[Rfam]
RNA sequence: CUUUUAUUCAGAGUGGUGGAGAUACAUAGGAUCUAUGAAGCCACGGCAACCCCUCGAAAGAGAGGAAGGUGCCAACCUGAGCGAGUGAUCGAACAAUAAGAG
Numbered sequence: 001c002u003u004u005u006a007u008u009c010a011g012a013g014u015g016g017u018g019g020a021g022a023u024a025c026a027u028a029g030g031a032u033c034u035a036u037g038a039a040g041c042c043a044c045g046g047c048a049a050c051c052c053c054u055c056g057a058a059a060g061a062g063a064g065g066a067a068g069g070u071g072c073c074a075a076c077c078u079g080a081g082c083g084a085g086u087g088a089u090c091g092a093a094c095a096a097u098a099a100g101a102g
Stems, first nucleotide, its partner, number of pairs: 001102008013044005021033003027081001030078001045073004050069002052065004082091003